The family of this 111-nucleotide RNA sequence from Bordetella trematum is "Manganese Mn2+ riboswitch aptamer (yybP-ykoY)". The literature on the family includes a 2001 paper in Curr Biol by Argaman et al., "Novel small RNA-encoding genes in the intergenic regions of Escherichia coli". The source organism's lineage runs through Bacteria, Pseudomonadota, Burkholderiales, Alcaligenaceae and Bordetella. The match comes from Rfam's covariance-model search (66 bits).
RNA sequence: CGCACUGUCAUUGGGGAGUAGCCAUCCUUUGUUUCCCCAAGGGAGUCAGCGUCAACAAGCUUGAGGUUCAACCUCAUGGCGCUGACGGCCUGACGCAGGGCAUUCGUGCCC
Numbered sequence: 001c002g003c004a005c006u007g008u009c010a011u012u013g014g015g016g017a018g019u020a021g022c023c024a025u026c027c028u029u030u031g032u033u034u035c036c037c038c039a040a041g042g043g044a045g046u047c048a049g050c051g052u053c054a055a056c057a058a059g060c061u062u063g064a065g066g067u068u069c070a071a072c073c074u075c076a077u078g079g080c081g082c083u084g085a086c087g088g089c090c091u092g093a094c095g096c097a098g099g100g101c102a103u104u105c106g107u108g109c110c111c
Stems, first nucleotide, its partner, number of pairs: 025043003045086010062076005